Shown here is a 57-nucleotide RNA sequence from Tetrataenium yunnanense, a member of the family "Plastid-psbA-4 3UTR RNA".
RNA sequence: AAAUAAAAAAAGCAAUACCGCCCUCUUAUUCUAUCAAGAGGGCGGUAUUGCUUUUUU
Numbered sequence: 001a002a003a004u005a006a007a008a009a010a011a012g013c014a015a016u017a018c019c020g021c022c023c024u025c026u027u028a029u030u031c032u033a034u035c036a037a038g039a040g041g042g043c044g045g046u047a048u049u050g051c052u053u054u055u056u057u
Stems, first nucleotide, its partner, number of pairs: 006057012021042001023040005
Taxonomically the source falls in Tetrataenium (Eukaryota, Viridiplantae, Pentapetalae, asterids). Rfam's curators write: Plastid psbA-4 is a non-coding RNA (ncRNA) present in plastids. It was identified in inverted repeat sequences in the 3 prime untranslate region (3UTR) of photosystem II quinone-binding protein (psbA). The family's RNA type in Rfam is cis-regulatory element. On this family, see Richter et al., Plant Commun 2023: "Retrograde signaling in plants: A critical review focusing on the GUN pathway and beyond".